[Rfam]
Shown here is a 145-nucleotide sequence from Brevibacillus panacihumi, a member of the family "SAM riboswitch aptamer (S box leader)". From the family's description: The SAM riboswitch is found upstream of a number of genes which code for proteins involved in methionine or cysteine biosynthesis in Gram-positive bacteria. NCBI's taxonomy places the organism under Bacteria, Bacillota, Caryophanales, Paenibacillaceae, Brevibacillus panacihumi.
RNA sequence: CUCUUAUCGCGAGCUGGCUGAGGGACUGGCCCUAUGAUGCCCGGCAACCGGCGCUCAUCUACCACGUUGUAGUGAGCGAAACGGUGCUAAUUCCAACGGAUAAGAGUCAAGCGCCUGUCUUGACUUCUUACCCGAGAGAUGAGAG
Numbered sequence: 001c002u003c004u005u006a007u008c009g010c011g012a013g014c015u016g017g018c019u020g021a022g023g024g025a026c027u028g029g030c031c032c033u034a035u036g037a038u039g040c041c042c043g044g045c046a047a048c049c050g051g052c053g054c055u056c057a058u059c060u061a062c063c064a065c066g067u068u069g070u071a072g073u074g075a076g077c078g079a080a081a082c083g084g085u086g087c088u089a090a091u092u093c094c095a096a097c098g099g100a101u102a103a104g105a106g107u108c109a110a111g112c113g114c115c116u117g118u119c120u121u122g123a124c125u126u127c128u129u130a131c132c133c134g135a136g137a138g139a140u141g142a143g144a145g
Base pairs, nucleotide, nucleotide: 001145002144003143004142005141006140007139008138013042016041017040018039022032023031024030027095028094029093043088044087045086046085048084049083052078053077054076055075056074057073058072092137097134098133099132101130102129103128104127105126106125